[Rfam]
RNA sequence: ACUGGAGGACUGAUCAGAAUGAGUCUGAAGAGUGAGACUCAGGUGACAGUGGCCUCCGAACAGGAAAGCGGUGGUGAGAGCUGUCCUGCUUGCAGAAAGGCAAAGGGCUGACUGCGCCAUCCGACACGU
Numbered sequence: 001a002c003u004g005g006a007g008g009a010c011u012g013a014u015c016a017g018a019a020u021g022a023g024u025c026u027g028a029a030g031a032g033u034g035a036g037a038c039u040c041a042g043g044u045g046a047c048a049g050u051g052g053c054c055u056c057c058g059a060a061c062a063g064g065a066a067a068g069c070g071g072u073g074g075u076g077a078g079a080g081c082u083g084u085c086c087u088g089c090u091u092g093c094a095g096a097a098a099g100g101c102a103a104a105g106g107g108c109u110g111a112c113u114g115c116g117c118c119a120u121c122c123g124a125c126a127c128g129u
Base pairs, nucleotide, nucleotide: 003060004057005056006055007054008053017044021040022039023038024037025036026035068122070120079113080112081110083108084107085106086105087104091102092101093100
A member of the RNA family "Small Cajal body specific RNA 4" from Buceros rhinoceros, 129 nucleotides long. About the family: scaRNAs are a specific class of small nuclear RNAs which localise to the Cajal bodies and guide the modification of RNA polymerase II transcribed spliceosomal RNAs U1, U2, U4, U5 and U12. ACA26 belongs to the H/ACA box class of guide RNAs as it has the predicted hairpin-hinge-hairpin-tail structure, conserved H/ACA-box motifs and is found associated with GAR1. The literature on the family includes a 2002 paper in EMBO J by Darzacq et al., "Cajal body-specific small nuclear RNAs: a novel class of 2'-O-methylation and pseudouridylation guide RNAs". The family has 24 seed sequences and 634 matches in Rfam 15.1. It is annotated as a small Cajal body RNA.